[Rfam]
RNA sequence: UAGGGUUGCGCUAGAAAGUUUUCUACCGAUCCUAGAAGUCUCUAGGAUCGGUAGAAAACUUUCUAGCGCCUCCUCUAGUAAAGAGUAAAAAACGAGCAAAAAACAUUGCUCGUUUUUUUCAUCA
Number, nucleotide and partner (000 for none) at each position: 001u000002a000003g074004g073005g072006u000007u000008g069009c068010g067011c066012u065013a064014g063015a062016a061017a060018g059019u058020u057021u056022u055023c054024u053025a052026c051027c050028g049029a048030u047031c046032c045033u044034a043035g042036a041037a000038g000039u000040c000041u036042c035043u034044a033045g032046g031047a030048u029049c028050g027051g026052u025053a024054g023055a022056a021057a020058a019059c018060u017061u016062u015063c014064u013065a012066g011067c010068g009069c008070c000071u000072c005073c004074u003075c000076u000077a000078g000079u000080a000081a000082a000083g000084a000085g000086u000087a000088a114089a113090a000091a110092a000093c108094g107095a106096g000097c000098a000099a000100a000101a000102a000103a000104c000105a000106u095107u094108g093109c000110u091111c000112g000113u089114u088115u000116u000117u000118u000119u000120c000121a000122u000123c000124a000

Rfam assigns this 124-nucleotide sequence from Salmonella enterica to the family "Gammaproteobacterial sRNA STnc400".
The source organism's lineage runs through Bacteria, Pseudomonadati, Enterobacterales, Salmonella and Salmonella enterica subsp. enterica.